[Rfam]
Nucleotides: 104
Base pairs, nucleotide, nucleotide: 036097037096038095039094040093052084053083054082055081056080057079058078059077
Number, partner (000 for none) and nucleotide at each position: 001000u002000u003000g004000c005000c006000u007000g008000a009000g010000a011000g012000a013000u014000g015000a016000a017000u018000a019000g020000g021000u022000u023000c024000c025000c026000g027000a028000a029000a030000u031000a032000a033000g034000g035000a036097g037096c038095a039094u040093u041000u042000u043000u044000u045000u046000c047000a048000c049000u050000u051000u052084g053083u054082c055081a056080g057079c058078u059077a060000g061000a062000u063000u064000u065000u066000u067000u068000c069000u070000c071000c072000a073000u074000u075000u076000c077059u078058a079057g080056c081055u082054g083053a084052c085000c086000a087000u088000u089000c090000a091000a092000a093040g094039a095038u096037g097036c098000a099000a100000u101000a102000u103000a104000u

Small nucleolar RNA snoR99: a 104-nucleotide RNA from Taxus chinensis. The family's consensus secondary structure was predicted with WAR. For this family Rfam cites "Experimental RNomics: identification of 140 candidates for small non-messenger RNAs in the plant Arabidopsis thaliana" (Marker et al., Curr Biol, 2002). It is annotated as an H/ACA-box small nucleolar RNA.